[Rfam]
The record is a 64-nucleotide sequence from Bombyx mori, which matches "mir-2774 microRNA precursor family" in Rfam. Taxonomically the source falls in Bombyx (Eukaryota, Pancrustacea, Dicondylia, Ditrysia). Its family is annotated with RISC complex and miRNA-mediated post-transcriptional gene silencing in the Gene Ontology. It scores 61 bits against the family's covariance model. On this family, see Liu et al., BMC Genomics 2010: "MicroRNAs of Bombyx mori identified by Solexa sequencing".
RNA sequence: ACAACAUUGGGACCGUCGGUCUACCGAGCAAUAUCACCCAAUCGGUGGAAGAUCUCUCUGUCGU
Numbered sequence: 001a002c003a004a005c006a007u008u009g010g011g012a013c014c015g016u017c018g019g020u021c022u023a024c025c026g027a028g029c030a031a032u033a034u035c036a037c038c039c040a041a042u043c044g045g046u047g048g049a050a051g052a053u054c055u056c057u058c059u060g061u062c063g064u
Stems, first nucleotide, its partner, number of pairs: 004061003015053003020049008